The record is a 356-nucleotide RNA sequence from Methylococcus capsulatus, which matches "transfer-messenger RNA" in Rfam. The literature on the family includes a 1997 paper in RNA by Felden et al., "Probing the structure of the Escherichia coli 10Sa RNA (tmRNA)". The organism belongs to Methylococcus capsulatus, within Bacteria. The family's RNA type in Rfam is non-coding RNA gene. From the family's description: Bacterial tmRNA, also known as 10Sa RNA or SsrA, is named for its dual tRNA and mRNA-like properties.

RNA sequence: GGGGGCGACAUGGCUUCGACGUGGAUCGCGAAACCUGAGGUGCAUGCCGAGGUGCAGAUGACCUCGUAAAUCCAUCUGCAAACCAAAUAAACGCCAACGACGACGUUUACGCACUGGCCGCUUAAGCCGGCCGGCCUCUGAUCAGCAGCUCGCUUACAAGCGGCUGGUUGGGGGUAACCCAAUUGUAAGCUCGCGCUGAAGUCUGUCCGGGGCCGAAGCGCUAAAACCCAACGGAAUCGCCGUCCGUCUUCCCUGCCACUCGGGUAGCGUCCGGCUAAAUCAAUAGAGUGGAUACGCAUGUAGAACCGAUGGCAGAGGAUUUGCGGACGCGGGUUCAAUUCCCGCCGCCUCCACCA
Numbered sequence: 001g002g003g004g005g006c007g008a009c010a011u012g013g014c015u016u017c018g019a020c021g022u023g024g025a026u027c028g029c030g031a032a033a034c035c036u037g038a039g040g041u042g043c044a045u046g047c048c049g050a051g052g053u054g055c056a057g058a059u060g061a062c063c064u065c066g067u068a069a070a071u072c073c074a075u076c077u078g079c080a081a082a083c084c085a086a087a088u089a090a091a092c093g094c095c096a097a098c099g100a101c102g103a104c105g106u107u108u109a110c111g112c113a114c115u116g117g118c119c120g121c122u123u124a125a126g127c128c129g130g131c132c133g134g135c136c137u138c139u140g141a142u143c144a145g146c147a148g149c150u151c152g153c154u155u156a157c158a159a160g161c162g163g164c165u166g167g168u169u170g171g172g173g174g175u176a177a178c179c180c181a182a183u184u185g186u187a188a189g190c191u192c193g194c195g196c197u198g199a200a201g202u203c204u205g206u207c208c209g210g211g212g213c214c215g216a217a218g219c220g221c222u223a224a225a226a227c228c229c230a231a232c233g234g235a236a237u238c239g240c241c242g243u244c245c246g247u248c249u250u251c252c253c254u255g256c257c258a259c260u261c262g263g264g265u266a267g268c269g270u271c272c273g274g275c276u277a278a279a280u281c282a283a284u285a286g287a288g289u290g291g292a293u294a295c296g297c298a299u300g301u302a303g304a305a306c307c308g309a310u311g312g313c314a315g316a317g318g319a320u321u322u323g324c325g326g327a328c329g330c331g332g333g334u335u336c337a338a339u340u341c342c343c344g345c346c347g348c349c350u351c352c353a354c355c356a
Stems, first nucleotide, its partner, number of pairs: 001352007020325008035312003039307003043300005048066005054079006114134007135173004140168001148165001150163002154188006191223001193221005206235003239275004245269003250264003256291006329345005